[Rfam]
RNA: mir-221 microRNA precursor family
Organism: Salarias fasciatus
RNA sequence: GGAGUCUUGGACCUGGCAUACAGUGUAGGAUCCUGUGUGUGUCGGCCUACAGCUACAUUGUCUGCUGGGUUUCGGGCCUCCCGC
Numbered sequence: 001g002g003a004g005u006c007u008u009g010g011a012c013c014u015g016g017c018a019u020a021c022a023g024u025g026u027a028g029g030a031u032c033c034u035g036u037g038u039g040u041g042u043c044g045g046c047c048u049a050c051a052g053c054u055a056c057a058u059u060g061u062c063u064g065c066u067g068g069g070u071u072u073c074g075g076g077c078c079u080c081c082c083g084c
Base pairs, nucleotide, nucleotide: 013068014067015066016065017064018063020061021060022059023058024057025056026055027054028053033052034051035050036049